[Rfam]
RNA sequence: UGUCUAGUUCUGGAGCUGUGGAAGAAGUAUUCAUAUUGCAGCUCCUUGGAUCCCUGUAAAUCUGUGAAUUCUGCU
Numbered sequence: 001u002g003u004c005u006a007g008u009u010c011u012g013g014a015g016c017u018g019u020g021g022a023a024g025a026a027g028u029a030u031u032c033a034u035a036u037u038g039c040a041g042c043u044c045c046u047u048g049g050a051u052c053c054c055u056g057u058a059a060a061u062c063u064g065u066g067a068a069u070u071c072u073g074c075u
Stems, first nucleotide, its partner, number of pairs: 012045006020075002023072004027039003047064005
RNA: Mammalian CPEB3 ribozyme
Organism: Microcaecilia unicolor